The record is a 76-nucleotide RNA from Onychostoma macrolepis, which matches "Small nucleolar RNA SNORD75" in Rfam. Lineage of the source: Eukaryota > Chordata > Teleostei > Otophysi > Onychostoma. It is annotated as a C/D-box small nucleolar RNA. Rfam links the family to the GO terms RNA processing and nucleolus. For this family Rfam cites "Purified box C/D snoRNPs are able to reproduce site-specific 2'-O-methylation of target RNA in vitro" (Galardi et al., Mol Cell Biol, 2002). It scores 66 bits against the family's covariance model. Pairs were carried over by alignment from the consensus structure, which was predicted with RNAalifold.
[Rfam]
RNA sequence: UGCUUAUGAUGAAUUUAAAAAAAAGAAAUAAGAGUAGUGGACAGGAGUGAUUCCUGAGAACCCUUUUUCUGAGGCA
Number, nucleotide and partner (000 for none) at each position: 001u076002g075003c074004u073005u000006a000007u000008g000009a000010u000011g000012a000013a000014u000015u000016u000017a000018a000019a000020a000021a000022a000023a000024a000025g000026a000027a000028a000029u000030a000031a000032g000033a000034g000035u000036a000037g000038u000039g000040g000041a000042c000043a000044g000045g000046a000047g000048u000049g000050a000051u000052u000053c000054c000055u000056g000057a000058g000059a000060a000061c000062c000063c000064u000065u000066u000067u000068u000069c000070u000071g000072a000073g004074g003075c002076a001